[Rfam]
The record is an 88-nucleotide RNA from Ceratodon purpureus, which matches "Small nucleolar RNA R16" in Rfam. A reference for the family is Galardi et al. (2002), "Purified box C/D snoRNPs are able to reproduce site-specific 2'-O-methylation of target RNA in vitro", Mol Cell Biol. Rfam classes the family as a C/D-box small nucleolar RNA. The source organism's lineage runs through Eukaryota, Streptophyta, Bryophytina, Pseudoditrichales and Ceratodon.

RNA sequence: AUUUGCAUAUGAUGAUUGUAAAUCUUAUUCUACACUCCGAAUGAAUACAUGUGGAAACAUAAUACACCUCUGACAAUCUGAUGCAUCG
Numbered sequence: 001a002u003u004u005g006c007a008u009a010u011g012a013u014g015a016u017u018g019u020a021a022a023u024c025u026u027a028u029u030c031u032a033c034a035c036u037c038c039g040a041a042u043g044a045a046u047a048c049a050u051g052u053g054g055a056a057a058c059a060u061a062a063u064a065c066a067c068c069u070c071u072g073a074c075a076a077u078c079u080g081a082u083g084c085a086u087c088g
Stems, first nucleotide, its partner, number of pairs: 004085004